[Rfam]
RNA sequence: GAAUAUCUGAGGGGAAGUCGCUCCUAGUACGAGAGGAACAGAGAGGCGUGGCCACUGGUCUACCGGUUGUCCGACAGGGCAGGCCGGGCAGCUAAGCCAUCUAGGCUAAGUGCUGAAAGCAUCUAAGCACGAAUCCUAUCCCGAGACAAGAUAUUCCUUCUUCGGAUGAAGGUUCGCAGAAGAAGACUGCGUUGAUAGGAAGGUGGUGUAACCCACAAGCUUCGGCGAGUGGAGAGCCAGCCUUUACUAAUCGACCAAAAC
Numbered sequence: 001g002a003a004u005a006u007c008u009g010a011g012g013g014g015a016a017g018u019c020g021c022u023c024c025u026a027g028u029a030c031g032a033g034a035g036g037a038a039c040a041g042a043g044a045g046g047c048g049u050g051g052c053c054a055c056u057g058g059u060c061u062a063c064c065g066g067u068u069g070u071c072c073g074a075c076a077g078g079g080c081a082g083g084c085c086g087g088g089c090a091g092c093u094a095a096g097c098c099a100u101c102u103a104g105g106c107u108a109a110g111u112g113c114u115g116a117a118a119g120c121a122u123c124u125a126a127g128c129a130c131g132a133a134u135c136c137u138a139u140c141c142c143g144a145g146a147c148a149a150g151a152u153a154u155u156c157c158u159u160c161u162u163c164g165g166a167u168g169a170a171g172g173u174u175c176g177c178a179g180a181a182g183a184a185g186a187c188u189g190c191g192u193u194g195a196u197a198g199g200a201a202g203g204u205g206g207u208g209u210a211a212c213c214c215a216c217a218a219g220c221u222u223c224g225g226c227g228a229g230u231g232g233a234g235a236g237c238c239a240g241c242c243u244u245u246a247c248u249a250a251u252c253g254a255c256c257a258a259a260a261c
Stems, first nucleotide, its partner, number of pairs: 001156008011142004017047003021043003048100005056094003063087005068081005103137003110130005171256004175191005196249003199245005204239003209233001213232004219226001
RNA: Archaeal large subunit ribosomal RNA, nucleotides 2721 to 2981
Organism: Candidatus Cenarchaeum symbiosum